RNA sequence: UCUCACGCUGUGACCCUCUAAAGGGAAGCGCUUUCUGUUGUCCAAAAGAAACGAAUGCGUCUUCCUUUAGAGUGUUACCGUCUGAGA
Numbered sequence: 001u002c003u004c005a006c007g008c009u010g011u012g013a014c015c016c017u018c019u020a021a022a023g024g025g026a027a028g029c030g031c032u033u034u035c036u037g038u039u040g041u042c043c044a045a046a047a048g049a050a051a052c053g054a055a056u057g058c059g060u061c062u063u064c065c066u067u068u069a070g071a072g073u074g075u076u077a078c079c080g081u082c083u084g085a086g087a
Stems, first nucleotide, its partner, number of pairs: 001087005007081002010078005016072003020068007028060004033055003039051001
Dot-bracket structure: (((((.((.(((((.(((.(((((((.((((.(((...(...........).))).)))).))))))).))).))))).)).)))))
RNA: mir-515 microRNA precursor family
Organism: Callithrix jacchus